[Rfam]
RNA: c-di-GMP-II-GAG riboswitch aptamer
RNA sequence: UAGUACACAGGAAGCUGUGAACCGCCGCCUGUAAAUGGUCACUUGGGCGGUGGGGAGCUAAUAGUGAGACCGGCCUGAAAGCAG
Numbered sequence: 001u002a003g004u005a006c007a008c009a010g011g012a013a014g015c016u017g018u019g020a021a022c023c024g025c026c027g028c029c030u031g032u033a034a035a036u037g038g039u040c041a042c043u044u045g046g047g048c049g050g051u052g053g054g055g056a057g058c059u060a061a062u063a064g065u066g067a068g069a070c071c072g073g074c075c076u077g078a079a080a081g082c083a084g
Base pairs, nucleotide, nucleotide: 001084003082004081008077009076010075011074013059014058015057022053023052024051025050026049027048028047029046037071038070039067040066041065042064043063